[Rfam]
RNA sequence: AGCAUUGGGUAAUUGCGCGUGAUAAUUCUCACGUGAGGAAGGUCCAUGCUCGCACCAGCUGUGAUGCUGGUAGUGUUUGUGCCGAGAUAAAAAAUAAGCUCGGGCGCGUUUAGCUUAGACUAAAUGUGACGGCGGUUGAAAUUGCUAAGGUCUUGUACUAUGCAAUAGUAAACUUGAAGGUGCCACAGAGACGAUAUGCUAAUGAAAAUUAGUAUUUGGAACGCGGUAAACCCCACAAGCGGGCAACCCAAACUUUUGGUAGGGGCGGCUAACCUAGUGAAUUCGAAACGAUGGUUGGUAUGGCGUUAUACGCUUAGAUAGAUGAUUACCGAAGGUAAUAGUACCCGCUAUUACUGGAACAAAACAUGGCCUACAGAU
Numbered sequence: 001a002g003c004a005u006u007g008g009g010u011a012a013u014u015g016c017g018c019g020u021g022a023u024a025a026u027u028c029u030c031a032c033g034u035g036a037g038g039a040a041g042g043u044c045c046a047u048g049c050u051c052g053c054a055c056c057a058g059c060u061g062u063g064a065u066g067c068u069g070g071u072a073g074u075g076u077u078u079g080u081g082c083c084g085a086g087a088u089a090a091a092a093a094a095u096a097a098g099c100u101c102g103g104g105c106g107c108g109u110u111u112a113g114c115u116u117a118g119a120c121u122a123a124a125u126g127u128g129a130c131g132g133c134g135g136u137u138g139a140a141a142u143u144g145c146u147a148a149g150g151u152c153u154u155g156u157a158c159u160a161u162g163c164a165a166u167a168g169u170a171a172a173c174u175u176g177a178a179g180g181u182g183c184c185a186c187a188g189a190g191a192c193g194a195u196a197u198g199c200u201a202a203u204g205a206a207a208a209u210u211a212g213u214a215u216u217u218g219g220a221a222c223g224c225g226g227u228a229a230a231c232c233c234c235a236c237a238a239g240c241g242g243g244c245a246a247c248c249c250a251a252a253c254u255u256u257u258g259g260u261a262g263g264g265g266c267g268g269c270u271a272a273c274c275u276a277g278u279g280a281a282u283u284c285g286a287a288a289c290g291a292u293g294g295u296u297g298g299u300a301u302g303g304c305g306u307u308a309u310a311c312g313c314u315u316a317g318a319u320a321g322a323u324g325a326u327u328a329c330c331g332a333a334g335g336u337a338a339u340a341g342u343a344c345c346c347g348c349u350a351u352u353a354c355u356g357g358a359a360c361a362a363a364a365c366a367u368g369g370c371c372u373a374c375a376g377a378u
Stems, first nucleotide, its partner, number of pairs: 004378003007374001008330007016035006040372003044369005049243005054071006077238005082103005104130001105128009131233002134174004142165004149159003180231002182227003196215008247264003268299007300315001302313001334355008

A member of the RNA family "Bacterial RNase P class B" from Leuconostoc fallax, 378 nucleotides long. Ribonuclease P (RNase P) is a ubiquitous endoribonuclease, found in archaea, bacteria and eukarya as well as chloroplasts and mitochondria. Its best characterised activity is the generation of mature 5'-ends of tRNAs by cleaving the 5'-leader elements of precursor-tRNAs. Cellular RNase Ps are ribonucleoproteins. The family's RNA type in Rfam is ribozyme. The family is grouped with related families in Rfam's "RNaseP clan". Taxonomically the source falls in Leuconostoc (Bacteria, Bacillota, Bacilli, Lactobacillales).